Overview:
The record is a 154-nucleotide RNA sequence from Apium graveolens, which matches "MIR390 microRNA precursor family" in Rfam. A reference for the family is Gustafson et al. (2005), "ASRP: the Arabidopsis Small RNA Project Database", Nucleic Acids Res. Lineage of the source: Eukaryota > Magnoliopsida > eudicotyledons > Pentapetalae > Apium.
RNA sequence: UAGUAGGAUCUGUAAAGCUCAGGAGGGAUAGCGCCAUAGAGGAUGAUACUUGAUCAUGUUUGUGAUUCUUAGGUAAGACUUUGUUUGCAUAAAUAAAUGAAUACUUUGGUAAGAUUAUUGGCGCUAUCUAUUCUGAGUUUCACGGCUCCUUCAU
Dot-bracket structure: .........(.....(((((((((.((((((((((....................................................................................)))))))))).))))))))).....).........